The family of this 98-nucleotide RNA from Aquabacterium sp. is "Bacterial small signal recognition particle RNA". Rfam classes the family as a non-coding RNA gene. It scores 70 bits against the family's covariance model.

[Rfam]
RNA sequence: GACGGGCCUCCCCGCAUGGGGGCGCGGCCAACCGGGUCAGAUUGGGAACGAAGCAGCCCUAACCGUUUGCCUCCAGUGCCGGGGUAAGGCUCGUCACC
Numbered sequence: 001g002a003c004g005g006g007c008c009u010c011c012c013c014g015c016a017u018g019g020g021g022g023c024g025c026g027g028c029c030a031a032c033c034g035g036g037u038c039a040g041a042u043u044g045g046g047a048a049c050g051a052a053g054c055a056g057c058c059c060u061a062a063c064c065g066u067u068u069g070c071c072u073c074c075a076g077u078g079c080c081g082g083g084g085u086a087a088g089g090c091u092c093g094u095c096a097c098c
Base pairs, nucleotide, nucleotide: 004092005091006090007089008088010084011083012082013081014080015076017075018074019073020072021071022070024066025065026064027063034059035058036057037056042051043050044049